[Rfam]
RNA sequence: ACAGAAUAUUUGGGGAGCUUUUUGCUGAGAGGAAGUUCGACUUCGACCCACAACCUGAUUUGGAUAAUGCCAACGUAGGGAUGACGCAAUUGACAGGCG
Numbered sequence: 001a002c003a004g005a006a007u008a009u010u011u012g013g014g015g016a017g018c019u020u021u022u023u024g025c026u027g028a029g030a031g032g033a034a035g036u037u038c039g040a041c042u043u044c045g046a047c048c049c050a051c052a053a054c055c056u057g058a059u060u061u062g063g064a065u066a067a068u069g070c071c072a073a074c075g076u077a078g079g080g081a082u083g084a085c086g087c088a089a090u091u092g093a094c095a096g097g098c099g
Stems, first nucleotide, its partner, number of pairs: 007086001009084002011050004017025002032044005054079004060073004
RNA: TPP riboswitch aptamer (THI element)